[Rfam]
RNA sequence: UCAUGGUUAUCUGGUGGUGGGCUCGCUGACAGCGGCCUUGACCAGUCAUGUCCUGAGACGAGACAAAGCCGCCCGAAACUCCCGAGGCGGCUUUUUU
Numbered sequence: 001u002c003a004u005g006g007u008u009a010u011c012u013g014g015u016g017g018u019g020g021g022c023u024c025g026c027u028g029a030c031a032g033c034g035g036c037c038u039u040g041a042c043c044a045g046u047c048a049u050g051u052c053c054u055g056a057g058a059c060g061a062g063a064c065a066a067a068g069c070c071g072c073c074c075g076a077a078a079c080u081c082c083c084g085a086g087g088c089g090g091c092u093u094u095u096u097u
Stems, first nucleotide, its partner, number of pairs: 011045005017039001019038004024034003049060004066093008074084002
Shown here is a 97-nucleotide RNA from Affinirhizobium straminoryzae, a member of the family "RcsR1 sRNA". A reference for the family is Baumgardt et al. (2015), "The stress-related, rhizobial small RNA RcsR1 destabilizes the autoinducer synthase encoding mRNA sinI in Sinorhizobium meliloti", RNA Biol. The family's consensus secondary structure is taken from published work. By type it is a small RNA. RcsR1 (rhizobial cold and salinity stress riboregulator 1) trans-acting sRNA, formerly known as SmelC587, is a stress-related riboregulator, conserved in Sinorhizobium, Rhizobium and Agrobacterium.